[Rfam]
RNA: MIR1520 microRNA precursor family
Organism: Glycine max
RNA sequence: UUCUUAUUGGAUAAUGUUUGUCAUGUGUCAUGUUCUGAUUGGUCAAUGAAAACAACAAUGCAUCUCAUUUUUCAUGGAGUUGACAUCUAAUUAGAAUAUGACACGUGACAAUCAUCAUCC
Numbered sequence: 001u002u003c004u005u006a007u008u009g010g011a012u013a014a015u016g017u018u019u020g021u022c023a024u025g026u027g028u029c030a031u032g033u034u035c036u037g038a039u040u041g042g043u044c045a046a047u048g049a050a051a052a053c054a055a056c057a058a059u060g061c062a063u064c065u066c067a068u069u070u071u072u073c074a075u076g077g078a079g080u081u082g083a084c085a086u087c088u089a090a091u092u093a094g095a096a097u098a099u100g101a102c103a104c105g106u107g108a109c110a111a112u113c114a115u116c117a118u119c120c
Base pairs, nucleotide, nucleotide: 020109021108022107023106025104026103029100030099031098033096034095035094036093038091039090040089041088042087